The family of this 62-nucleotide sequence from Streptomyces netropsis is "Streptomyces RNA 2736". It is annotated as a small RNA. From the family's description: Identified by deep sequencing of transcriptome at the end of exponential growth phase. Appears smaller on northern blot than sequencing transcript. This indicates processing step. Streptomyces specific. Lineage of the source: Bacteria > Actinomycetes > Kitasatosporales > Streptomycetaceae > Streptomyces.

[Rfam]
Nucleotides: 062
Base pairs, nucleotide, nucleotide: 001060002059003037004036005035006034007033009030010029011028012027013026014024015023016022042051043050
Number, partner (000 for none) and nucleotide at each position: 001060c002059g003037c004036c005035c006034g007033g008000c009030c010029g011028g012027a013026u014024c015023c016022c017000g018000u019000g020000g021000g022016g023015g024014g025000a026013a027012u028011c029010c030009g031000a032000a033007c034006c035005g036004g037003g038000g039000a040000a041000c042051g043050g044000a045000a046000g047000g048000u049000g050043c051042c052000u053000c054000g055000g056000c057000u058000c059002c060001g061000a062000c